[Rfam]
RNA: Nuclear RNase P
Organism: Astyanax mexicanus
RNA sequence: GUGGGAGGAAGCUCACUCCAGAGGUCACAAACUGAGUGUCCAUCACUCCACCCACAACCUCGGGAAGGUCUGAGACAAGAGCCAAUCACUGCCCUCGCAGAGGUGCACCUGAUCCAGGUGAGUGAGGACCCAGAGAAGCUGGAGCUGAUGGAGGUUCAGGUAGGAGAAAUCGGGUGGUGCAGGAACAGCACUGUGAUGUGAGACGAACCGACACCGGCUUGGAAAGAAUCACGGCUGGAAACAGAGUUCAAUGUGUGAGCUGGAGUUCACCCUCCAGAACCAAUUUUCAGGACUACUCUCCUCUCAC
Numbered sequence: 001g002u003g004g005g006a007g008g009a010a011g012c013u014c015a016c017u018c019c020a021g022a023g024g025u026c027a028c029a030a031a032c033u034g035a036g037u038g039u040c041c042a043u044c045a046c047u048c049c050a051c052c053c054a055c056a057a058c059c060u061c062g063g064g065a066a067g068g069u070c071u072g073a074g075a076c077a078a079g080a081g082c083c084a085a086u087c088a089c090u091g092c093c094c095u096c097g098c099a100g101a102g103g104u105g106c107a108c109c110u111g112a113u114c115c116a117g118g119u120g121a122g123u124g125a126g127g128a129c130c131c132a133g134a135g136a137a138g139c140u141g142g143a144g145c146u147g148a149u150g151g152a153g154g155u156u157c158a159g160g161u162a163g164g165a166g167a168a169a170u171c172g173g174g175u176g177g178u179g180c181a182g183g184a185a186c187a188g189c190a191c192u193g194u195g196a197u198g199u200g201a202g203a204c205g206a207a208c209c210g211a212c213a214c215c216g217g218c219u220u221g222g223a224a225a226g227a228a229u230c231a232c233g234g235c236u237g238g239a240a241a242c243a244g245a246g247u248u249c250a251a252u253g254u255g256u257g258a259g260c261u262g263g264a265g266u267u268c269a270c271c272c273u274c275c276a277g278a279a280c281c282a283a284u285u286u287u288c289a290g291g292a293c294u295a296c297u298c299u300c301c302u303c304u305c306a307c
Stems, first nucleotide, its partner, number of pairs: 001307004007301003012259005018253001021061004034048005070291001071289004080236004092102001094100001106120005122232004138218005260277006